Shown here is a 124-nucleotide sequence from Arminella tubonensis, a member of the family "Alphaproteobacterial ar14". By type it is a small RNA. Pairs were carried over by alignment from the consensus structure. Rfam's curators write: Smr14C2 was renamed NfeR1 (Nodule Formation Efficiency RNA) highly expressed in salt stress and during the symbiotic interaction on legume roots. NCBI's taxonomy places the organism under Bacteria, Pseudomonadati, Alphaproteobacteria, Hyphomicrobiales, Arminella. Its family is annotated with biological process involved in symbiotic interaction in the Gene Ontology.

Nucleotides: 124
Base pairs, nucleotide, nucleotide: 007039008038009037010036011035012034013033014032015031016030043075044074045073046072047071048070049069050068051067052066088119089118090117091116092115093114094113095112096111097110098109
Number, partner (000 for none) and nucleotide at each position: 001000a002000u003000u004000u005000a006000u007039c008038a009037g010036a011035c012034g013033g014032u015031c016030c017000a018000c019000u020000c021000c022000u023000c024000c025000u026000c027000c028000c029000g030016g031015g032014a033013u034012c035011g036010u037009c038008u039007g040000a041000u042000g043075g044074a045073u046072c047071g048070g049069c050068a051067a052066c053000a054000c055000u056000c057000c058000u059000c060000c061000u062000c063000c064000c065000g066052g067051u068050u069049g070048c071047u072046g073045a074044u075043c076000g077000g078000u079000u080000c081000u082000u083000u084000u085000c086000g087000a088119a089118a090117g091116c092115c093114u094113g095112c096111c097110g098109c099000a100000c101000c102000u103000c104000c105000u106000c107000c108000c109098g110097c111096g112095g113094c114093a115092g116091g117090c118089u119088u120000u121000u122000u123000c124000g